[Rfam]
RNA sequence: GACUGAAGUGGAGAAGGGUUUCUUGUCAACUAUGUUUGUACAAGAGUUAGCCACUCCUAAGGGAUAGCUGAAAAGUGUUUAAAAGAAGUAAGAUAUUAUAUGGAAAUAUAUAAUUAGAUCUUCGUCUCAAAAGGGAAACAGGUUAAUAUUCCUGUGCCAAAUAGAAGUAAGGGUGUGAAUAAAGAAAGAUGGUAACAUACAUACAAAUGAACUCCUUGACAUAGGUUUUACGCUCGGGGUGCGUUAUCUUUGCACUUUAAUUUUAUAGCAAACCUUGGAAUCAAUUUAUUUGGAGAAGAGGUUUGUUGAACUCAAUUCAAAAAAUUUAUGGCUGGGUUUUCGGAUUCAGUUCAUUUUAUUUUUUGUUUUGUAGCAAUAGUAAUUCGUUUUUAUGAAUUAUCCGAAGUGGUAAAAACUAUCCUUGAAAAAAGGAGGGAACGGAGCAUAUACAGAAGGGAAUUUAAUUAUUUUUUUUUUUGAGUUACCUUCUUAUGUGAAAUACUCUUAUAUUCAAUCAAUAAUGAGUGUACCAAUAACCGCAUCAGGUCUCCAAGGUUAGUAGCCUCUGGUUAAA
Numbered sequence: 001g002a003c004u005g006a007a008g009u010g011g012a013g014a015a016g017g018g019u020u021u022c023u024u025g026u027c028a029a030c031u032a033u034g035u036u037u038g039u040a041c042a043a044g045a046g047u048u049a050g051c052c053a054c055u056c057c058u059a060a061g062g063g064a065u066a067g068c069u070g071a072a073a074a075g076u077g078u079u080u081a082a083a084a085g086a087a088g089u090a091a092g093a094u095a096u097u098a099u100a101u102g103g104a105a106a107u108a109u110a111u112a113a114u115u116a117g118a119u120c121u122u123c124g125u126c127u128c129a130a131a132a133g134g135g136a137a138a139c140a141g142g143u144u145a146a147u148a149u150u151c152c153u154g155u156g157c158c159a160a161a162u163a164g165a166a167g168u169a170a171g172g173g174u175g176u177g178a179a180u181a182a183a184g185a186a187a188g189a190u191g192g193u194a195a196c197a198u199a200c201a202u203a204c205a206a207a208u209g210a211a212c213u214c215c216u217u218g219a220c221a222u223a224g225g226u227u228u229u230a231c232g233c234u235c236g237g238g239g240u241g242c243g244u245u246a247u248c249u250u251u252g253c254a255c256u257u258u259a260a261u262u263u264u265a266u267a268g269c270a271a272a273c274c275u276u277g278g279a280a281u282c283a284a285u286u287u288a289u290u291u292g293g294a295g296a297a298g299a300g301g302u303u304u305g306u307u308g309a310a311c312u313c314a315a316u317u318c319a320a321a322a323a324a325u326u327u328a329u330g331g332c333u334g335g336g337u338u339u340u341c342g343g344a345u346u347c348a349g350u351u352c353a354u355u356u357u358a359u360u361u362u363u364u365g366u367u368u369u370g371u372a373g374c375a376a377u378a379g380u381a382a383u384u385c386g387u388u389u390u391u392a393u394g395a396a397u398u399a400u401c402c403g404a405a406g407u408g409g410u411a412a413a414a415a416c417u418a419u420c421c422u423u424g425a426a427a428a429a430a431g432g433a434g435g436g437a438a439c440g441g442a443g444c445a446u447a448u449a450c451a452g453a454a455g456g457g458a459a460u461u462u463a464a465u466u467a468u469u470u471u472u473u474u475u476u477u478u479g480a481g482u483u484a485c486c487u488u489c490u491u492a493u494g495u496g497a498a499a500u501a502c503u504c505u506u507a508u509a510u511u512c513a514a515u516c517a518a519u520a521a522u523g524a525g526u527g528u529a530c531c532a533a534u535a536a537c538c539g540c541a542u543c544a545g546g547u548c549u550c551c552a553a554g555g556u557u558a559g560u561a562g563c564c565u566c567u568g569g570u571u572a573a574a
Stems, first nucleotide, its partner, number of pairs: 001571004010551004016531002021045006030038001052527003056134002061128002063079003067076003086121001088119001138155005158523002161519002164516002167512001173204005212434006221419004226414006234404003237257006263310002272302005281293004314398006537546002553565004
RNA: Eukaryotic large subunit ribosomal RNA, nucleotides 1674 to 2247